[Rfam]
RNA: Small nucleolar RNA Z159/U59
RNA sequence: GCCUCUGAGGAUGAUCAUACACAUACUUUCGUUCUUCCGAAAUACACCAUGUGGAAGAAUUGUGGAGACCUGAACUGAAGAGGC
Numbered sequence: 001g002c003c004u005c006u007g008a009g010g011a012u013g014a015u016c017a018u019a020c021a022c023a024u025a026c027u028u029u030c031g032u033u034c035u036u037c038c039g040a041a042a043u044a045c046a047c048c049a050u051g052u053g054g055a056a057g058a059a060u061u062g063u064g065g066a067g068a069c070c071u072g073a074a075c076u077g078a079a080g081a082g083g084c
Base pairs, nucleotide, nucleotide: 003082004081005080006079